[Rfam]
RNA: Small nucleolar RNA SNORA38
Organism: Heterocephalus glaber
RNA sequence: CCCUCCAACAAAGGUGUGUCUUUUGUUCCCUGACUUUGGACCCCUAAGAAUGGGAGGCAAAGAAAUGAGGAUUUGGAGACAUAUGGGGCCAACUUACUCUCCACAGUCUCAAGAUCAAGUGUUCCACAUUU
Numbered sequence: 001c002c003c004u005c006c007a008a009c010a011a012a013g014g015u016g017u018g019u020c021u022u023u024u025g026u027u028c029c030c031u032g033a034c035u036u037u038g039g040a041c042c043c044c045u046a047a048g049a050a051u052g053g054g055a056g057g058c059a060a061a062g063a064a065a066u067g068a069g070g071a072u073u074u075g076g077a078g079a080c081a082u083a084u085g086g087g088g089c090c091a092a093c094u095u096a097c098u099c100u101c102c103a104c105a106g107u108c109u110c111a112a113g114a115u116c117a118a119g120u121g122u123u124c125c126a127c128a129u130u131u
Base pairs, nucleotide, nucleotide: 002057003056004055005054006053016043018041019040020039021038025029069124070123071122073121091109094106095105